[Rfam]
RNA sequence: CCAGUGUUCAGACUACCUGUUCAGGACAAUGCUGUUGUACAGUAGUCUGCACAUUGGUUAGACUGGGCA
Numbered sequence: 001c002c003a004g005u006g007u008u009c010a011g012a013c014u015a016c017c018u019g020u021u022c023a024g025g026a027c028a029a030u031g032c033u034g035u036u037g038u039a040c041a042g043u044a045g046u047c048u049g050c051a052c053a054u055u056g057g058u059u060a061g062a063c064u065g066g067g068c069a
Stems, first nucleotide, its partner, number of pairs: 001057007009049007017042004022037002